Drosophila rox2 ncRNA: a 71-nucleotide sequence from Drosophila ananassae. For this family Rfam cites "An evolutionarily conserved domain of roX2 RNA is sufficient for induction of H4-Lys16 acetylation on the Drosophila X chromosome" (Park et al., Genetics, 2007). NCBI's taxonomy places the organism under Eukaryota, Allotriocarida, Cyclorrhapha, Sophophora, ananassae species complex. The family's RNA type in Rfam is cis-regulatory element. The base pairs follow the family's consensus structure, which is taken from published work. A search with the family's covariance model found it, with a score of 61 bits.
RNA sequence: GAAAGGCAUGCAAAAUGUUGCAAAAAUAUAUACAUAUAGUAUAUAAAAUGGUAAUGUUUUACGCGCCUUAA
Numbered sequence: 001g002a003a004a005g006g007c008a009u010g011c012a013a014a015a016u017g018u019u020g021c022a023a024a025a026a027u028a029u030a031u032a033c034a035u036a037u038a039g040u041a042u043a044u045a046a047a048a049u050g051g052u053a054a055u056g057u058u059u060u061a062c063g064c065g066c067c068u069u070a071a
Base pairs, nucleotide, nucleotide: 003069004068005067007065009063010062012060013059014058015057016056017055018054019053020052021051